[Rfam]
RNA sequence: GAUGAAUGCUAAAGACUGGAAGACAUGAGAAUUGAAAACUAUGACUUGAAGAUAACAGUAGGGG
Dot-bracket structure: ......((((.....((..(((.((((............)))).)))..)).....))))....
Overview
A member of the RNA family "mir-9412 microRNA precursor family" from Nematostella vectensis, 64 nucleotides long. NCBI's taxonomy places the organism under Eukaryota, Metazoa, Eumetazoa, Edwardsiidae, Nematostella. A search with the family's covariance model found it, with a score of 75 bits.